The record is a 63-nucleotide RNA sequence from Piliocolobus tephrosceles, which matches "U7 small nuclear RNA" in Rfam. The match comes from Rfam's covariance-model search (47 bits). Animal histone pre-mRNAs are spliced by a different mechanism than nuclear pre-mRNAs and self-splicing introns. This processing involves the U7 snRNP, which contains only one RNA species: U7. The 5' end of U7 RNA is thought to base-pair to a conserved spacer element downstream of the cleavage site in histone pre-mRNA. This family contains a number of annotated U7 pseudogenes. Lineage of the source: Eukaryota > Teleostomi > Euarchontoglires > Catarrhini > Piliocolobus.
RNA sequence: AAGUGUUACAGCUCUUGUAGAAUUUUACUAGCAGGUUUUCCAGUUUUCACCUGAAACUCCCCC
Numbered sequence: 001a002a003g004u005g006u007u008a009c010a011g012c013u014c015u016u017g018u019a020g021a022a023u024u025u026u027a028c029u030a031g032c033a034g035g036u037u038u039u040c041c042a043g044u045u046u047u048c049a050c051c052u053g054a055a056a057c058u059c060c061c062c063c
Stems, first nucleotide, its partner, number of pairs: 034060002037056004043050002